[Rfam]
A member of the RNA family "HgcG RNA (Pab40)" from Ferroglobus placidus, 272 nucleotides long. For this family Rfam cites "Noncoding RNA genes identified in AT-rich hyperthermophiles" (Klein et al., Proc Natl Acad Sci U S A, 2002). It is annotated as an H/ACA-box small nucleolar RNA.
Nucleotides: 272
Base pairs, nucleotide, nucleotide: 059122060121061120062119063118064117065116066115073108074107075106077104078103127193128192129191130190131189132188133187136146137145138144139143159176160175167172200264201263202262203261204260205259206258207257209255215249216248217247218246220244221243226234227233228232
Number, partner (000 for none) and nucleotide at each position: 001000a002000g003000g004000a005000u006000a007000u008000c009000c010000g011000c012000u013000g014000c015000u016000u017000g018000a019000a020000g021000a022000g023000a024000a025000a026000a027000u028000g029000u030000u031000u032000u033000a034000u035000c036000c037000a038000a039000u040000c041000c042000c043000g044000u045000a046000u047000u048000a049000c050000u051000u052000a053000u054000a055000u056000u057000c058000g059122a060121c061120c062119c063118c064117a065116g066115c067000g068000g069000g070000g071000a072000g073108g074107g075106g076000u077104g078103u079000g080000g081000a082000g083000a084000g085000a086000g087000c088000u089000a090000a091000g092000c093000u094000u095000u096000c097000g098000a099000u100000g101000a102000a103078g104077c105000u106075c107074c108073c109000u110000g111000c112000a113000a114000g115066g116065c117064u118063g119062g120061g121060g122059u123000u124000a125000c126000a127193c128192c129191a130190u131189g132188c133187c134000g135000a136146u137145a138144g139143g140000u141000c142000c143139c144138c145137u146136g147000g148000u149000g150000a151000g152000a153000g154000a155000g156000c157000c158000c159176u160175g161000g162000c163000u164000u165000u166000c167172g168000a169000u170000g171000a172167c173000c174000c175160u176159g177000g178000g179000g180000c181000a182000a183000c184000c185000c186000g187133g188132g189131c190130a191129u192128g193127g194000g195000a196000c197000a198000a199000a200264g201263c202262c203261c204260c205259g206258a207257g208000a209255g210000g211000u212000c213000a214000g215249c216248c217247g218246u219000u220244u221243g222000a223000g224000a225000g226234a227233g228232c229000g230000c231000a232228g233227c234226u235000u236000u237000c238000g239000a240000u241000g242000a243221u244220a245000u246218a247217c248216g249215g250000c251000g252000u253000u254000a255209c256000a257207c258206u259205c260204g261203g262202g263201g264200c265000a266000c267000a268000g269000g270000a271000a272000u

Pairs were carried over by alignment from the consensus structure, which was predicted with PFOLD.